[Rfam]
RNA sequence: UCUUCGUUUUACGCGCUCUCUCACCGGUCAGAGAGGCGAGAUAGUGCGCGAAAUUAAGAGA
Numbered sequence: 001u002c003u004u005c006g007u008u009u010u011a012c013g014c015g016c017u018c019u020c021u022c023a024c025c026g027g028u029c030a031g032a033g034a035g036g037c038g039a040g041a042u043a044g045u046g047c048g049c050g051a052a053a054u055u056a057a058g059a060g061a
Base pairs, nucleotide, nucleotide: 001059002058003057004056006054007053010050012048013047014046015045016044017043019041020040021039022038

The family of this 61-nucleotide RNA from Pristionchus pacificus is "mir-8364 microRNA precursor family". It scores 71 bits against the family's covariance model. Lineage of the source: Eukaryota > Metazoa > Diplogasteromorpha > Neodiplogasteridae > Pristionchus.